Shown here is a 54-nucleotide RNA, a member of the family "pemK RNA".
RNA sequence: AUAAUGAUACUUCCGGCAAUAGUCGGUCUGAAGAAGAUGGUGAAAUUCCAAUGU
Numbered sequence: 001a002u003a004a005u006g007a008u009a010c011u012u013c014c015g016g017c018a019a020u021a022g023u024c025g026g027u028c029u030g031a032a033g034a035a036g037a038u039g040g041u042g043a044a045a046u047u048c049c050a051a052u053g054u
Stems, first nucleotide, its partner, number of pairs: 012051001013026004027037003038050003